[Rfam]
RNA sequence: UGUGCGGCCCGGGCCCCUCUGGCGACUGCCGUUUAGGCAGCUGCGAUGUCGGACCGCAUCG
Numbered sequence: 001u002g003u004g005c006g007g008c009c010c011g012g013g014c015c016c017c018u019c020u021g022g023c024g025a026c027u028g029c030c031g032u033u034u035a036g037g038c039a040g041c042u043g044c045g046a047u048g049u050c051g052g053a054c055c056g057c058a059u060c061g
Base pairs, nucleotide, nucleotide: 006055007054009052010051011050012049022044023043024042026040027039028038029037
Rfam assigns this 61-nucleotide RNA from Sphingopyxis bauzanensis to the family "terC RNA".
It is annotated as a cis-regulatory element.